[Rfam]
RNA sequence: UAUUAUCUGUUGUCGAAUCUCUAUUUGAGAGCGGGGAACCCACCGAUUUGGGGCGAAUCUAAGUUUAGAGGAAGACCUUUACUUCCAGCCCGACAGCUAACUCCGUAGAUUUUAUUAAAGGACAGA
Numbered sequence: 001u002a003u004u005a006u007c008u009g010u011u012g013u014c015g016a017a018u019c020u021c022u023a024u025u026u027g028a029g030a031g032c033g034g035g036g037a038a039c040c041c042a043c044c045g046a047u048u049u050g051g052g053g054c055g056a057a058u059c060u061a062a063g064u065u066u067a068g069a070g071g072a073a074g075a076c077c078u079u080u081a082c083u084u085c086c087a088g089c090c091c092g093a094c095a096g097c098u099a100a101c102u103c104c105g106u107a108g109a110u111u112u113u114a115u116u117a118a119a120g121g122a123c124a125g126a
Stems, first nucleotide, its partner, number of pairs: 012110003018030003031106006041050002051091003059068003071085004

The record is a 126-nucleotide RNA sequence from Halanaerobium salsuginis, which matches "c-di-AMP riboswitch aptamer (ydaO/yuaA leader)" in Rfam.
Pairs were carried over by alignment from the consensus structure.
Taxonomically the source falls in Halanaerobium (Bacteria, Bacillati, Bacillota, Clostridia).
Rfam's curators write: This family represents a conserved RNA structure found upstream of the ydaO and yuaA genes in Bacillus subtilis and related genes in other bacteria. The ydaO/yuaA element is thought to act as a genetic 'off' switch for the ydaO and yuaA genes in its native state. It is believed that the element may be triggered during osmotic shock leading to activation of ydaO, a predicted amino acid transporter gene, and members of the yuaA-yubG operon which code for KtrA and KtrB K+ transporters.